RNA sequence: CUCUAUCCAGGUCUGUGGUUGCGGUUUUUCCUAGUCCAAGGCAGAUGCGGUCAAAAGGAUCCACGUAAGUUAUCGGUUUUCCGAAACGAGCAUGGCGCAUCCUAGAGGUAAGACGUACCGUUCGGGUUUUAUGCAACAUAGGGUUGCACGAACGAGAGGACGACGUCCGCUUUGCGGGCUUGGUUCCAGUAUGCGAGUGUGGGGUCAAAGACCAGGUCAGCUGGAAGAG
Dot-bracket structure: ((((.(((((..((((((((.................(.([..((((((.]........((........((............)).......[))))))))............((((((((((..........................)))))...((((.....(((.....))).....))))..)))))....).)......]..)))))...))))))))))))
RNA: raiA RNA